[Rfam]
RNA sequence: AUGAAAAGCAUUGCACCCAGAGUCUGGGCCUCCGGACAUUGUACCUGGAGCUUUUCUGUUGAAUAGUAAACCUGUUU
Numbered sequence: 001a002u003g004a005a006a007a008g009c010a011u012u013g014c015a016c017c018c019a020g021a022g023u024c025u026g027g028g029c030c031u032c033c034g035g036a037c038a039u040u041g042u043a044c045c046u047g048g049a050g051c052u053u054u055u056c057u058g059u060u061g062a063a064u065a066g067u068a069a070a071c072c073u074g075u076u077u
Stems, first nucleotide, its partner, number of pairs: 005054005017048004022037005
Rfam assigns this 77-nucleotide sequence from Albula glossodonta to the family "U1A polyadenylation inhibition element (PIE)".
Rfam's curators write: This family represents the U1A polyadenylation inhibition element (PIE). PIE is a regulatory RNA which is responsible for the regulation of the length of the polyA tail of the U1A pre-mRNA. The PIE is located in the U1A mRNA 3' UTR. PIE adopts a U-shaped structure, with binding sites for a single U1A protein at each bend and when complexed with the two proteins it blocks activity of poly(A) polymerase (PAP), and inhibits its activity.
The organism belongs to Albula, within Eukaryota.
By type it is a cis-regulatory element.
Pairs were carried over by alignment from the consensus structure, which is taken from published work.
The literature on the family includes a 2000 paper in Nat Struct Biol by Varani et al., "The NMR structure of the 38 kDa U1A protein - PIE RNA complex reveals the basis of cooperativity in regulation of polyadenylation by human U1A protein".
A search with the family's covariance model found it, with a score of 66 bits.